[Rfam]
RNA: Purine riboswitch aptamer
Organism: Alkalihalobacillus trypoxylicola
RNA sequence: GAAAAUGAAUAUUUACCAUAUCGUAUAAUUACAGGAAUAAGGUCUGUACGUCUCUACCAAGCUACCGUAAAAUGGCUUGACUACGAUGGAUUAUCUAUUAUAA
Dot-bracket structure: ..................(((((((....((((((.......)))))).........(((((((........)))))))..)))))))...............